[Rfam]
About this RNA:
The family of this 224-nucleotide part of an RNA from Zymoseptoria tritici is "Eukaryotic large subunit ribosomal RNA". The family is grouped with related families in Rfam's "LSU clan".
RNA sequence: CGCUUACAACCAGACUUUGGGGCGGUGUUCCGCCGGUCUUCUGACCGGUCUACUCUCCGUCCCGAGGCCAACAUCAUCUGGGACCGCCGGACAAGACCUCAGGAAUGUAGCUCCCCCUCGGGGGAGUGUUAUAGCCUGUGGUGAUGCGGCGCGUCCCGGGUGAGGUCCGCGCUUCGGCAAGGAUGUUGGCGUAAUGGUUGUCAGCGGCCCGUCUUGAAACACGG
Numbered sequence: 001c002g003c004u005u006a007c008a009a010c011c012a013g014a015c016u017u018u019g020g021g022g023c024g025g026u027g028u029u030c031c032g033c034c035g036g037u038c039u040u041c042u043g044a045c046c047g048g049u050c051u052a053c054u055c056u057c058c059g060u061c062c063c064g065a066g067g068c069c070a071a072c073a074u075c076a077u078c079u080g081g082g083a084c085c086g087c088c089g090g091a092c093a094a095g096a097c098c099u100c101a102g103g104a105a106u107g108u109a110g111c112u113c114c115c116c117c118u119c120g121g122g123g124g125a126g127u128g129u130u131a132u133a134g135c136c137u138g139u140g141g142u143g144a145u146g147c148g149g150c151g152c153g154u155c156c157c158g159g160g161u162g163a164g165g166u167c168c169g170c171g172c173u174u175c176g177g178c179a180a181g182g183a184u185g186u187u188g189g190c191g192u193a194a195u196g197g198u199u200g201u202c203a204g205c206g207g208c209c210c211g212u213c214u215u216g217a218a219a220c221a222c223g224g
Base pairs, nucleotide, nucleotide: 001206002205003204004203006201007200008199009198010197011196012195017065018064019063020062021061022060023059024058069188070187071186072185073184074183075182209224210223211222212221